[Rfam]
Nucleotides: 121
Stems, first nucleotide, its partner, number of pairs: 002065007010058001024054003028050002031047003078116006085108004091102004
Number, partner (000 for none) and nucleotide at each position: 001000u002065u003064g004063u005062c006061c007060u008059g009000g010058c011000c012000u013000a014000u015000g016000c017000u018000c019000u020000c021000u022000c023000u024054g025053c026052u027000c028050c029049c030000a031047u032046g033045u034000a035000c036000u037000u038000a039000g040000u041000u042000g043000u044000a045033g046032c047031a048000g049029g050028g051000g052026a053025g054024u055000c056000c057000a058010g059008c060007a061006g062005g063004a064003c065002a066000u067000a068000c069000c070000a071000c072000a073000a074000u075000c076000u077000c078116c079115c080114u081113c082112u083111u084000g085108g086107u087106u088105u089000a090000g091102g092101a093100g094099g095000g096000c097000c098000a099094c100093u101092u102091u103000a104000a105088a106087g107086g108085c109000a110000a111083g112082a113081g114080a115079g116078g117000a118000c119000a120000a121000u